[Rfam]
RNA sequence: UGAUGAUGGUGAGGGCAAUUUUUUAUCAUAAUUUUAAAUCUCUCCCAAGCUUGAUGAUGGUGAGGGCAAUUCUUUCUAUCUGAAACUCAAAAUCUUGCUUCUCAAAUG
Number, nucleotide and partner (000 for none) at each position: 001u108002g000003a000004u105005g103006a102007u000008g000009g000010u000011g000012a000013g000014g000015g000016c000017a000018a000019u000020u000021u000022u000023u000024u000025a000026u000027c000028a000029u000030a000031a000032u000033u000034u000035u000036a000037a000038a000039u000040c000041u000042c000043u000044c000045c000046c000047a000048a000049g000050c000051u000052u000053g000054a000055u000056g000057a075058u000059g000060g072061u000062g000063a000064g000065g000066g000067c000068a000069a000070u000071u000072c060073u000074u000075u057076c000077u000078a000079u000080c000081u000082g000083a000084a000085a000086c000087u000088c000089a000090a000091a000092a000093u000094c000095u000096u000097g000098c000099u000100u000101c000102u006103c005104a000105a004106a000107u000108g001
Source information
The family of this 108-nucleotide RNA from Capsicum annuum is "Plant small nucleolar RNA R71". Its family is annotated with nucleolus and RNA processing in the Gene Ontology. A search with the family's covariance model found it, with a score of 42 bits. Rfam 15.1 lists 278,378 matches to the family in 216 species. For this family Rfam cites "Plant snoRNAs: functional evolution and new modes of gene expression" (Brown et al., Trends Plant Sci, 2003).